[Rfam]
RNA sequence: AACGUUCUUCGGGGUCAGUGUAAAUCUGAGCCGGCGGUUACAGCCCGCGACCCGUCCAGGUAGUUUUCUGGCCGGUUGAAUCUGUGAAAUUCAGAUGCCGACGGUUAAAGUCCGGAUGGGAGAAGAACCGA
Numbered sequence: 001a002a003c004g005u006u007c008u009u010c011g012g013g014g015u016c017a018g019u020g021u022a023a024a025u026c027u028g029a030g031c032c033g034g035c036g037g038u039u040a041c042a043g044c045c046c047g048c049g050a051c052c053c054g055u056c057c058a059g060g061u062a063g064u065u066u067u068c069u070g071g072c073c074g075g076u077u078g079a080a081u082c083u084g085u086g087a088a089a090u091u092c093a094g095a096u097g098c099c100g101a102c103g104g105u106u107a108a109a110g111u112c113c114g115g116a117u118g119g120g121a122g123a124a125g126a127a128c129c130g131a
Base pairs, nucleotide, nucleotide: 004128005127006126007125008124009123010122016028017027018026030111031110032100033099034048035047036046037045043098044097052075053074080096081095082094083093084092102114103113104112
RNA: FMN riboswitch aptamer (RFN element)